[Rfam]
RNA sequence: GUGAGAAUCACAGUGCGGCUCUCCUCUGGCAUGAGGGCGCGACUGAGAGGCACGAACAGUUUCUGGCCUUCUCCUGCCAAUGCCAAAGGAGAGUUGCCCUGCCAUUCGUUA
Numbered sequence: 001g002u003g004a005g006a007a008u009c010a011c012a013g014u015g016c017g018g019c020u021c022u023c024c025u026c027u028g029g030c031a032u033g034a035g036g037g038c039g040c041g042a043c044u045g046a047g048a049g050g051c052a053c054g055a056a057c058a059g060u061u062u063c064u065g066g067c068c069u070u071c072u073c074c075u076g077c078c079a080a081u082g083c084c085a086a087a088g089g090a091g092a093g094u095u096g097c098c099c100u101g102c103c104a105u106u107c108g109u110u111a
Base pairs, nucleotide, nucleotide: 005107006106007105008104011101012100013099015097016096017095018094019093021091022090023089024088027085028084029083030082031081032080035077
This 111-nucleotide sequence from Zea mays belongs to the Rfam family "mir-399 microRNA precursor family". A search with the family's covariance model found it, with a score of 62 bits. Lineage of the source: Eukaryota > Streptophytina > Poaceae > Tripsacinae > Zea. The literature on the family includes a 2004 paper in Mol Cell by Jones-Rhoades and Bartel, "Computational Identification of Plant MicroRNAs and Their Targets, Including a Stress-Induced miRNA". The family's consensus secondary structure was predicted with PFOLD. Gene Ontology terms of the family: miRNA-mediated post-transcriptional gene silencing and RISC complex. mir-399 was identified in both Arabidopsis thaliana and Oryza sativa computationally and was later experimentally verified. mir-399 is thought to target mRNAs coding for a phosphatase transporter. The mature sequence is excised from the 3' arm of the hairpin.